[Rfam]
RNA sequence: GUGAAGUAAUGAUGAAGUUUGUCCAUUCUCUGAGUGCCUCUGCACUGCUUCCUGCAACAUCCAGGUCCCUGUUCUAGAGGCUUUGUGCUGUGCAGCCUCCAGAUUCCCCCUAGUCUCUCAGUGGUUUACUGGGGGCUAUUCAUGUGUCUGGAUGGCUGCCUGCAGGAGUGAAAUGGAGCCAGCAGAGCUGGAACCUCUCUAUGGGGGGGCUUCAUCUUGGCCAAGAUGAGGGGUGCUGUCCUAUCAC
Numbered sequence: 001g002u003g004a005a006g007u008a009a010u011g012a013u014g015a016a017g018u019u020u021g022u023c024c025a026u027u028c029u030c031u032g033a034g035u036g037c038c039u040c041u042g043c044a045c046u047g048c049u050u051c052c053u054g055c056a057a058c059a060u061c062c063a064g065g066u067c068c069c070u071g072u073u074c075u076a077g078a079g080g081c082u083u084u085g086u087g088c089u090g091u092g093c094a095g096c097c098u099c100c101a102g103a104u105u106c107c108c109c110c111u112a113g114u115c116u117c118u119c120a121g122u123g124g125u126u127u128a129c130u131g132g133g134g135g136c137u138a139u140u141c142a143u144g145u146g147u148c149u150g151g152a153u154g155g156c157u158g159c160c161u162g163c164a165g166g167a168g169u170g171a172a173a174u175g176g177a178g179c180c181a182g183c184a185g186a187g188c189u190g191g192a193a194c195c196u197c198u199c200u201a202u203g204g205g206g207g208g209g210c211u212u213c214a215u216c217u218u219g220g221c222c223a224a225g226a227u228g229a230g231g232g233g234u235g236c237u238g239u240c241c242u243a244u245c246a247c
Stems, first nucleotide, its partner, number of pairs: 010246005017239002023233002026230003030225002034221002040182003043178001045176003049168005055162002060087001062085003065081003069077002092159006106144001111138005117133007185218003189214004194209005
Overview:
Rfam assigns this 247-nucleotide RNA from Crocodylus porosus to the family "Small nucleolar RNA SNORD17". On this family, see Huttenhofer et al., EMBO J 2001: "RNomics: an experimental approach that identifies 201 candidates for novel, small, non-messenger RNAs in mouse". Its family is annotated with nucleolus and RNA processing in the Gene Ontology. Rfam's curators write: The snoRNA HBI-43 belongs to the C/D family of snoRNAs, guiding 2'O-ribose methylation at position U3797 of the 28S rRNA. Pseudouridylation in position U3797 is predicted to be guided by the H/ACA snoRNA ACA48. The family's RNA type in Rfam is C/D-box small nucleolar RNA.